A member of the RNA family "Trypanosomatid snoRNA TB11Cs5H3" from Leishmania braziliensis, 69 nucleotides long. Lineage of the source: Eukaryota > Kinetoplastea > Leishmaniinae > Leishmania braziliensis species complex > Leishmania braziliensis. A reference for the family is Myslyuk et al. (2008), "Psiscan: a computational approach to identify H/ACA-like and AGA-like non-coding RNA in trypanosomatid genomes", BMC Bioinformatics. Gene Ontology terms of the family: nucleolus and RNA processing.
[Rfam]
RNA sequence: AGCACAGUUCGAAGGCCGUCAUUCUUUGUAUAACAUGUAGAAUGCAAUCGGUUCAAAAUCUCUGCUAGA
Numbered sequence: 001a002g003c004a005c006a007g008u009u010c011g012a013a014g015g016c017c018g019u020c021a022u023u024c025u026u027u028g029u030a031u032a033a034c035a036u037g038u039a040g041a042a043u044g045c046a047a048u049c050g051g052u053u054c055a056a057a058a059u060c061u062c063u064g065c066u067a068g069a
Stems, first nucleotide, its partner, number of pairs: 002065003006061002009058001016051003021048001026047006
Dot-bracket structure: .(((.((.(......(((..(....((((((..........))))))))))......).)).)))....